[Rfam]
RNA sequence: AUUCAAACAGAGAGAAGCUUCUUCGGUUGCGUUGGGGUAUCUGGGCGUUCUUGGCUCGGUCUCUUGGACGUCCGGUCCACUGCGGGUUUCGAGUCGAGCUGGAGUUGGAAAGACGGAUCAACCAUUUUGGGAGGGAUACAAUAGCGGGAUCAGUCGAUGCGAGUUUCGGGGUGCGAAAGACUAGAUGCCGUGGUAAGACCGUCCCAUCUAUCUAAUUCAUACCGCAUCCGCAGACUUGGUUCCACUUCACACAGGCAGAAAGGAUAUCACUUGGCGUCCAGGACAGGACCCAUCUCGCGUUGGAGUCAAAGCUUAGUGCUUGUCUGUCCGGGGGAGCGCGGGGUCGAUUUGCCCGACUGCUUGUUUGGGGCGUGGCUUCUUCGGUGGUGCUGUGGUGGGUUUCUGGACGGGCUUGGGUGUGGGUGUUGUUGCUUUUUGCUUGGUUGGCCUAUCGAGGGACAGACCCAAUGGUGGGUAGUCCUGGGCUGUUCUCCUGUCUGGUAAAAUAGACUUGAAGCAGCCCCUCCUUCUUGGGG
Number, nucleotide and partner (000 for none) at each position: 001a000002u000003u000004c000005a000006a000007a000008c000009a000010g000011a000012g000013a000014g000015a000016a000017g000018c000019u000020u000021c000022u000023u000024c000025g000026g000027u000028u000029g000030c000031g000032u000033u000034g000035g000036g000037g000038u000039a000040u000041c000042u000043g000044g000045g000046c000047g000048u000049u000050c000051u000052u000053g000054g000055c000056u000057c000058g000059g000060u000061c000062u000063c000064u000065u000066g000067g000068a000069c000070g000071u000072c000073c000074g000075g000076u000077c000078c000079a000080c000081u000082g000083c000084g000085g000086g000087u000088u000089u000090c000091g000092a000093g000094u000095c000096g000097a000098g000099c000100u000101g000102g000103a000104g000105u000106u000107g000108g000109a000110a000111a000112g000113a000114c000115g000116g000117a000118u000119c000120a000121a000122c000123c000124a000125u000126u000127u000128u000129g000130g000131g000132a000133g000134g000135g000136a000137u000138a000139c000140a000141a000142u000143a000144g000145c000146g000147g000148g000149a000150u000151c000152a000153g000154u000155c000156g000157a000158u000159g000160c000161g000162a000163g000164u000165u000166u000167c000168g000169g000170g000171g000172u000173g000174c000175g000176a000177a000178a000179g000180a000181c000182u000183a000184g000185a000186u000187g000188c000189c000190g000191u000192g000193g000194u000195a000196a000197g000198a000199c000200c000201g000202u000203c000204c000205c000206a000207u000208c000209u000210a000211u000212c000213u000214a000215a000216u000217u000218c000219a000220u000221a000222c000223c000224g000225c000226a000227u000228c000229c000230g000231c000232a000233g000234a000235c000236u000237u000238g000239g000240u000241u000242c000243c000244a000245c000246u000247u000248c000249a000250c000251a000252c000253a000254g000255g000256c000257a000258g000259a000260a000261a000262g000263g000264a000265u000266a000267u000268c000269a000270c000271u000272u000273g000274g000275c000276g000277u000278c000279c000280a000281g000282g000283a000284c000285a000286g000287g307288a306289c305290c303291c302292a301293u000294c000295u000296c000297g000298c000299g000300u000301u292302g291303g290304a000305g289306u288307c287308a000309a321310a320311g319312c318313u000314u000315a000316g000317u000318g312319c311320u310321u309322g000323u000324c000325u000326g000327u000328c000329c000330g000331g000332g000333g000334g000335a000336g000337c000338g000339c000340g000341g000342g000343g000344u000345c000346g000347a000348u000349u000350u000351g000352c000353c000354c000355g000356a000357c000358u000359g000360c000361u000362u000363g000364u000365u000366u000367g000368g000369g000370g000371c000372g000373u000374g000375g000376c000377u000378u000379c000380u000381u000382c000383g000384g000385u000386g000387g000388u000389g000390c000391u000392g000393u000394g000395g000396u000397g000398g000399g000400u000401u000402u000403c000404u000405g000406g000407a000408c000409g000410g000411g000412c000413u000414u000415g000416g000417g000418u000419g000420u000421g000422g000423g000424u000425g000426u000427u000428g000429u000430u000431g000432c000433u000434u000435u000436u000437u000438g000439c000440u000441u000442g000443g000444u000445u000446g000447g000448c000449c000450u000451a000452u000453c000454g000455a000456g000457g000458g000459a000460c000461a000462g000463a000464c000465c000466c000467a000468a000469u000470g000471g000472u000473g000474g000475g000476u000477a000478g000479u000480c000481c000482u000483g000484g000485g000486c000487u000488g000489u000490u000491c000492u000493c000494c000495u000496g000497u000498c000499u000500g000501g000502u000503a000504a000505a000506a000507u000508a000509g000510a000511c000512u000513u000514g000515a000516a000517g000518c000519a000520g000521c000522c000523c000524c000525u000526c000527c000528u000529u000530c000531u000532u000533g000534g000535g000536g000